[Rfam]
RNA sequence: ACAUUUCUACUUUCGGUUAUCUAGCUUUAUGAAGGCAGAUAAACACUCAUACAGCUAGAUAACCAAAGAUAGCAACUA
Numbered sequence: 001a002c003a004u005u006u007c008u009a010c011u012u013u014c015g016g017u018u019a020u021c022u023a024g025c026u027u028u029a030u031g032a033a034g035g036c037a038g039a040u041a042a043a044c045a046c047u048c049a050u051a052c053a054g055c056u057a058g059a060u061a062a063c064c065a066a067a068g069a070u071a072g073c074a075a076c077u078a
Stems, first nucleotide, its partner, number of pairs: 004075002007072003011068003015064012028051005
Rfam assigns this 78-nucleotide RNA sequence from Danio rerio to the family "mir-9/mir-79 microRNA precursor family". Rfam links the family to the GO terms RISC complex and miRNA-mediated post-transcriptional gene silencing.